[Rfam]
RNA sequence: GUGGAAGACUGGACGGCCGCUGCCCGGUAACGGGGAGAGGAAAGUCCGGACUCGACAAAGCAUUGGUGCCGGGUAACGCCCGGGCAGGGCAACCUGACGGAUAGCGCCACAGAAAACAGACCGCCUUUUGGUUCGCCAAAAGGUAAGGGUGAAACGGUGGGGUAAGAGCCCACCGGGGGGCUGGCAACAGCGCCCGCAUGGCAAGCCCCACCGGGAGCAAUGCCAAAUAGGGACCUCGCGUGCGCUGAUCCUGCACGGGAUAUCGGCACAGGGCGGCUUUGGCCCGAGAGGUCCGGGUUGGCAGCAAGAGCGGCGUGGCAACGCGCCGCCUAGAUGAAUGGUCGUCGAACCCCGGCAACGGGGGGAACAAAAUCCGGCUUAUAGGUCUUCCACGCAA
Numbered sequence: 001g002u003g004g005a006a007g008a009c010u011g012g013a014c015g016g017c018c019g020c021u022g023c024c025c026g027g028u029a030a031c032g033g034g035g036a037g038a039g040g041a042a043a044g045u046c047c048g049g050a051c052u053c054g055a056c057a058a059a060g061c062a063u064u065g066g067u068g069c070c071g072g073g074u075a076a077c078g079c080c081c082g083g084g085c086a087g088g089g090c091a092a093c094c095u096g097a098c099g100g101a102u103a104g105c106g107c108c109a110c111a112g113a114a115a116a117c118a119g120a121c122c123g124c125c126u127u128u129u130g131g132u133u134c135g136c137c138a139a140a141a142g143g144u145a146a147g148g149g150u151g152a153a154a155c156g157g158u159g160g161g162g163u164a165a166g167a168g169c170c171c172a173c174c175g176g177g178g179g180g181c182u183g184g185c186a187a188c189a190g191c192g193c194c195c196g197c198a199u200g201g202c203a204a205g206c207c208c209c210a211c212c213g214g215g216a217g218c219a220a221u222g223c224c225a226a227a228u229a230g231g232g233a234c235c236u237c238g239c240g241u242g243c244g245c246u247g248a249u250c251c252u253g254c255a256c257g258g259g260a261u262a263u264c265g266g267c268a269c270a271g272g273g274c275g276g277c278u279u280u281g282g283c284c285c286g287a288g289a290g291g292u293c294c295g296g297g298u299u300g301g302c303a304g305c306a307a308g309a310g311c312g313g314c315g316u317g318g319c320a321a322c323g324c325g326c327c328g329c330c331u332a333g334a335u336g337a338a339u340g341g342u343c344g345u346c347g348a349a350c351c352c353c354g355g356c357a358a359c360g361g362g363g364g365g366a367a368c369a370a371a372a373u374c375c376g377g378c379u380u381a382u383a384g385g386u387c388u389u390c391c392a393c394g395c396a397a
Base pairs, nucleotide, nucleotide: 001393002392003391004390005389006388007387008386009385010384011382012346013345014344015343016342017341018340020037021036023034024033025032026031042380043379044378046377047376048375049374050373051217052216053215058279059278060277061276064213065212066211067210068209069083070082071081072080073079084098085096086095087094088093099208100207104206105205106202107201108200121148122147123144124143125142126141127140128139129138130137131136156174157173158172159171160170161169175197176195177194178193180191181190182189183188221303222302223301224300231294232293233292234291235290236289271285272284273283274282310329311328312327313326314325315324316323317322